[Rfam]
RNA sequence: UUUUUGCGUUAGGGAUUGCAACGGCAUCCUUUUUAUUUUUUUUCAAAAUAAAAAGAUAUAGUGGAAAGCCCGCUCGAAC
Numbered sequence: 001u002u003u004u005u006g007c008g009u010u011a012g013g014g015a016u017u018g019c020a021a022c023g024g025c026a027u028c029c030u031u032u033u034u035a036u037u038u039u040u041u042u043u044c045a046a047a048a049u050a051a052a053a054a055g056a057u058a059u060a061g062u063g064g065a066a067a068g069c070c071c072g073c074u075c076g077a078a079c
Stems, first nucleotide, its partner, number of pairs: 012071003016067002021062002026057003032052008